Rfam assigns this 55-nucleotide RNA sequence to the family "Glutamine riboswitch aptamer (glnA leader)". It is one of the family's seed sequences. On this family, see Ren et al., Cell Rep 2015: "Structural and Dynamic Basis for Low-Affinity, High-Selectivity Binding of L-Glutamine by the Glutamine Riboswitch".
[Rfam]
RNA sequence: AUCGUUCAAUUUGCCAUAGGCAAAUCGGAAGUAGGUUAACCCGAAGGAACGCGGA
Numbered sequence: 001a002u003c004g005u006u007c008a009a010u011u012u013g014c015c016a017u018a019g020g021c022a023a024a025u026c027g028g029a030a031g032u033a034g035g036u037u038a039a040c041c042c043g044a045a046g047g048a049a050c051g052c053g054g055a
Base pairs, nucleotide, nucleotide: 003051004050005049006048007047009025010024011023012022013021014020015019028052034042035041